Rfam assigns this 108-nucleotide sequence from Sphingobacterium allocomposti to the family "SAM riboswitch aptamer (S box leader)". Rfam describes the family as follows. The SAM riboswitch is found upstream of a number of genes which code for proteins involved in methionine or cysteine biosynthesis in Gram-positive bacteria. The base pairs follow the family's consensus structure, which is taken from published work.
RNA sequence: CGCUUAUAGAGAAAGGCAGAGGGAAUAGACCCGCUGAAGCCUUAGCAACCUGUCACUGGACAAGGUGCUACAUUCUACUCCAUAGCGAAGCGCGGAGAAAGAUAAGCU
Numbered sequence: 001c002g003c004u005u006a007u008a009g010a011g012a013a014a015g016g017c018a019g020a021g022g023g024a025a026u027a028g029a030c031c032c033g034c035u036g037a038a039g040c041c042u043u044a045g046c047a048a049c050c051u052g053u054c055a056c057u058g059g060a061c062a063a064g065g066u067g068c069u070a071c072a073u074u075c076u077a078c079u080c081c082a083u084a085g086c087g088a089a090g091c092g093c094g095g096a097g098a099a100a101g102a103u104a105a106g107c108u
Base pairs, nucleotide, nucleotide: 002107003106004105005104006103007102013043014042015041016040017039021032022031023030026077027076028075029074044069045068046067047066049065050064051062052061053060054059073100078097079096080095081094083092